[Rfam]
RNA sequence: GAUUUGCGUUAAGGAUAGCAGGCGGUAUCCUUUUGGUGUCUUGCCUUUUUUUGGCAAGAGACCAAAAGAUAAAGCCGAAUAGCCUGACCCGCU
Numbered sequence: 001g002a003u004u005u006g007c008g009u010u011a012a013g014g015a016u017a018g019c020a021g022g023c024g025g026u027a028u029c030c031u032u033u034u035g036g037u038g039u040c041u042u043g044c045c046u047u048u049u050u051u052u053g054g055c056a057a058g059a060g061a062c063c064a065a066a067a068g069a070u071a072a073a074g075c076c077g078a079a080u081a082g083c084c085u086g087a088c089c090c091g092c093u
Stems, first nucleotide, its partner, number of pairs: 012085003016081002021076002027070003033065005039059007
RNA: Flavo-1 RNA
Organism: Flavobacterium faecale